[Rfam]
RNA sequence: UCGCAUACCAGUAGACCUUGUCUGGUUCUUCUCGUAGCCAGACGAGGGGGACGGUGCAUGCUACAGAAACCGGGGGUUGCUGUAGGCUGCCAUCAGCCUCGAUGUGGCUGGUUGAACUGCAAUACUCCAACAUAC
Numbered sequence: 001u002c003g004c005a006u007a008c009c010a011g012u013a014g015a016c017c018u019u020g021u022c023u024g025g026u027u028c029u030u031c032u033c034g035u036a037g038c039c040a041g042a043c044g045a046g047g048g049g050g051a052c053g054g055u056g057c058a059u060g061c062u063a064c065a066g067a068a069a070c071c072g073g074g075g076g077u078u079g080c081u082g083u084a085g086g087c088u089g090c091c092a093u094c095a096g097c098c099u100c101g102a103u104g105u106g107g108c109u110g111g112u113u114g115a116a117c118u119g120c121a122a123u124a125c126u127c128c129a130a131c132a133u134a135c
Base pairs, nucleotide, nucleotide: 003061004060005059006058008056016047017046018045019044020043021042022041023040024039073128074127075126076125078124081121082120083119093111094110095109096108097107
RNA: Small nucleolar RNA SNORA58
Organism: Lophotis ruficrista